Description:
Shown here is an 81-nucleotide RNA sequence from Bombyx mori, a member of the family "mir-2807 microRNA precursor family". For this family Rfam cites "MicroRNAs of Bombyx mori identified by Solexa sequencing" (Liu et al., BMC Genomics, 2010).

RNA sequence: GCACUGAAAAGUAUGGAGUUGGAACGAUUGCCUAUGUUUGUCGCUAGGGGCGCUGUUCCAACUGCAUACAAAUUUCAGUUA
Number, nucleotide and partner (000 for none) at each position: 001g000002c000003a000004c000005u000006g000007a075008a074009a073010a000011g069012u068013a067014u000015g065016g000017a063018g062019u061020u060021g059022g058023a057024a056025c055026g054027a000028u000029u000030g000031c049032c048033u047034a000035u000036g044037u043038u000039u000040g000041u000042c000043g037044c036045u000046a000047g033048g032049g031050g000051c000052g000053c000054u026055g025056u024057u023058c022059c021060a020061a019062c018063u017064g000065c015066a000067u013068a012069c011070a000071a000072a000073u009074u008075u007076c000077a000078g000079u000080u000081a000

Background: NCBI's taxonomy places the organism under Eukaryota, Ditrysia, Obtectomera, Bombycidae, Bombyx.